[Rfam]
RNA: Purine riboswitch aptamer
Organism: Crassaminicella thermophila
RNA sequence: AAAACAAUUAAAUCAUCUACUCAUAUAAUUUCGGUAAUAGGGUCCGAAAGUCUCUACCAGGCAACCGUAAAUUGCCUGACUAUGGGUGAAAGCGUAUCUAGG
Numbered sequence: 001a002a003a004a005c006a007a008u009u010a011a012a013u014c015a016u017c018u019a020c021u022c023a024u025a026u027a028a029u030u031u032c033g034g035u036a037a038u039a040g041g042g043u044c045c046g047a048a049a050g051u052c053u054c055u056a057c058c059a060g061g062c063a064a065c066c067g068u069a070a071a072u073u074g075c076c077u078g079a080c081u082a083u084g085g086g087u088g089a090a091a092g093c094g095u096a097u098c099u100a101g102g
Stems, first nucleotide, its partner, number of pairs: 018088008029049006058078007